Annotation: The family of this 60-nucleotide RNA sequence from Electrophorus electricus is "Caulobacter sRNA CC0196". The family's RNA type in Rfam is small RNA. Rfam 15.1 lists 25 matches to the family in 25 species.
[Rfam]
RNA sequence: UUUUUGAAGGCACUCACCACUCUUUUUUUUCCUCAGGCAGGCAGACAAGGCCUGUCUGUU
Numbered sequence: 001u002u003u004u005u006g007a008a009g010g011c012a013c014u015c016a017c018c019a020c021u022c023u024u025u026u027u028u029u030u031c032c033u034c035a036g037g038c039a040g041g042c043a044g045a046c047a048a049g050g051c052c053u054g055u056c057u058g059u060u
Stems, first nucleotide, its partner, number of pairs: 034058009